[Rfam]
RNA: 6C RNA
Organism: Saccharopolyspora rhizosphaerae
RNA sequence: ACCAGUUCAGCUCGACCCCCCGGAGCUGAACUACGACGACCCCCGCCCCUCCCCCCUGGCGGGGGUCGUCCCGC
Numbered sequence: 001a002c003c004a005g006u007u008c009a010g011c012u013c014g015a016c017c018c019c020c021c022g023g024a025g026c027u028g029a030a031c032u033a034c035g036a037c038g039a040c041c042c043c044c045g046c047c048c049c050u051c052c053c054c055c056c057u058g059g060c061g062g063g064g065g066u067c068g069u070c071c072c073g074c
Stems, first nucleotide, its partner, number of pairs: 004032010035070013